[Rfam]
RNA: c-di-GMP-I-GGC riboswitch aptamer
Organism: Bipolaricaulis sanaerobius
RNA sequence: UCCGAUAAGGGCAAACCCACGGCAACGUGGGGACGCAAAGCCAACAGGUCCCUCAGGGAUGGCUGGGUUGCCGAAG
Numbered sequence: 001u002c003c004g005a006u007a008a009g010g011g012c013a014a015a016c017c018c019a020c021g022g023c024a025a026c027g028u029g030g031g032g033a034c035g036c037a038a039a040g041c042c043a044a045c046a047g048g049u050c051c052c053u054c055a056g057g058g059a060u061g062g063c064u065g066g067g068u069u070g071c072c073g074a075a076g
Stems, first nucleotide, its partner, number of pairs: 001076001003073002011036002016031006034062001039069004045065003048060003